Rfam assigns this 84-nucleotide RNA from Deinococcus maricopensis to the family "c-di-GMP-II-GAG riboswitch aptamer". Its family is annotated with cyclic-di-GMP binding and regulation of gene expression in the Gene Ontology.

[Rfam]
RNA sequence: UUCAACCUGCGACGCAACGACGUCUGUUCAGUAUCCGGGCACCUUGAACGGACCGAGCCAGUGGUGCGCCCACCGCGGUCAUCA
Numbered sequence: 001u002u003c004a005a006c007c008u009g010c011g012a013c014g015c016a017a018c019g020a021c022g023u024c025u026g027u028u029c030a031g032u033a034u035c036c037g038g039g040c041a042c043c044u045u046g047a048a049c050g051g052a053c054c055g056a057g058c059c060a061g062u063g064g065u066g067c068g069c070c071c072a073c074c075g076c077g078g079u080c081a082u083c084a
Base pairs, nucleotide, nucleotide: 001084007078008077009076010075011074014058015057022053023052024051025050026049027048028047029046037071038070039067040066041065042064043063
The source organism's lineage runs through Bacteria, Deinococcota, Deinococci, Deinococcus and Deinococcus maricopensis. The family's consensus secondary structure is taken from published work. Clan: c-di-GMP_II riboswitch clan. For this family Rfam cites "Bioinformatic analysis of riboswitch structures uncovers variant classes with altered ligand specificity" (Weinberg et al., Proc Natl Acad Sci U S A, 2017).